[Rfam]
RNA sequence: GAGGAAAAUGGCUCCUCGAAGUCGCUUUGCAGGAAGAGAUUUCAAACCACCUUAAGCUGCUUUGGUCAAAAGCCAAGGUAGUGAGCGUUAAGGAAAAGGUAUGAUAAACAUAUCAGGU
Numbered sequence: 001g002a003g004g005a006a007a008a009u010g011g012c013u014c015c016u017c018g019a020a021g022u023c024g025c026u027u028u029g030c031a032g033g034a035a036g037a038g039a040u041u042u043c044a045a046a047c048c049a050c051c052u053u054a055a056g057c058u059g060c061u062u063u064g065g066u067c068a069a070a071a072g073c074c075a076a077g078g079u080a081g082u083g084a085g086c087g088u089u090a091a092g093g094a095a096a097a098g099g100u101a102u103g104a105u106a107a108a109c110a111u112a113u114c115a116g117g118u
Base pairs, nucleotide, nucleotide: 001017002016003015004014005013018043019042020041021040022039023038025036026035027034028033048117050093051092052091053090054089055088056082057081059079060078061077063075064074065073066072098114099113100112101111102110103109